[Rfam]
RNA: pan motif
Organism: Planococcus halotolerans
RNA sequence: CGGGCAGUAUCUUCUAAAGAAUUGCACCGGCAAAACAAUCAUUAACUUAAAAACCUAUGAAUCUGCCUUGAUCUAUUGCAUGACAGGGACGGAAGA
Numbered sequence: 001c002g003g004g005c006a007g008u009a010u011c012u013u014c015u016a017a018a019g020a021a022u023u024g025c026a027c028c029g030g031c032a033a034a035a036c037a038a039u040c041a042u043u044a045a046c047u048u049a050a051a052a053a054c055c056u057a058u059g060a061a062u063c064u065g066c067c068u069u070g071a072u073c074u075a076u077u078g079c080a081u082g083a084c085a086g087g088g089a090c091g092g093a094a095g096a
Stems, first nucleotide, its partner, number of pairs: 001029003004025005010020002063092003066088005072083002